[Rfam]
RNA sequence: GUGCCCUUUUAAGGUUGACACAGUGCCUUCUUCACACAGAAGGGUAAAGGAAGCCACCAUAAAACCGAGAGAAGAGCCUGAAACUCCUCUUUGGACCCUGUCUGGAGUCACAACU
Numbered sequence: 001g002u003g004c005c006c007u008u009u010u011a012a013g014g015u016u017g018a019c020a021c022a023g024u025g026c027c028u029u030c031u032u033c034a035c036a037c038a039g040a041a042g043g044g045u046a047a048a049g050g051a052a053g054c055c056a057c058c059a060u061a062a063a064a065c066c067g068a069g070a071g072a073a074g075a076g077c078c079u080g081a082a083a084c085u086c087c088u089c090u091u092u093g094g095a096c097c098c099u100g101u102c103u104g105g106a107g108u109c110a111c112a113a114c115u
Stems, first nucleotide, its partner, number of pairs: 002046009014035002017032001053109001055107001057105003066094001068092005074086003